[Rfam]
RNA sequence: UCCUCCUACAAAGGUGUGUCUGUAGUUCCCUGUCGUUGGACACAUAAGAAUUAGAGGAAAAGAAAUGUGGAUUUGGAUAAGUCUGGAACCAGCUUGCUCCCUACAGGCUCAAAACCAACUAUCCAACAGAA
Number, nucleotide and partner (000 for none) at each position: 001u000002c057003c056004u055005c054006c000007u000008a000009c000010a000011a000012a000013g000014g000015u044016g043017u042018g041019u040020c039021u038022g000023u000024a000025g029026u000027u000028c000029c025030c000031u000032g000033u000034c000035g000036u000037u000038g021039g020040a019041c018042a017043c016044a015045u000046a000047a000048g000049a000050a000051u000052u000053a000054g005055a004056g003057g002058a000059a000060a000061a000062g000063a000064a000065a000066u000067g000068u000069g124070g123071a122072u000073u121074u000075g000076g000077a000078u000079a000080a000081g000082u000083c000084u000085g000086g000087a000088a000089c000090c000091a109092g108093c107094u106095u105096g104097c000098u000099c000100c000101c000102u000103a000104c096105a095106g094107g093108c092109u091110c000111a000112a000113a000114a000115c000116c000117a000118a000119c000120u000121a073122u071123c070124c069125a000126a000127c000128a000129g000130a000131a000

The record is a 131-nucleotide RNA from Suricata suricatta, which matches "Small nucleolar RNA SNORA38" in Rfam.
A search with the family's covariance model found it, with a score of 137 bits.
The family's RNA type in Rfam is H/ACA-box small nucleolar RNA.
The base pairs follow the family's consensus structure, which was predicted with RNAfold.
Lineage of the source: Eukaryota > Gnathostomata > Sarcopterygii > Carnivora > Suricata.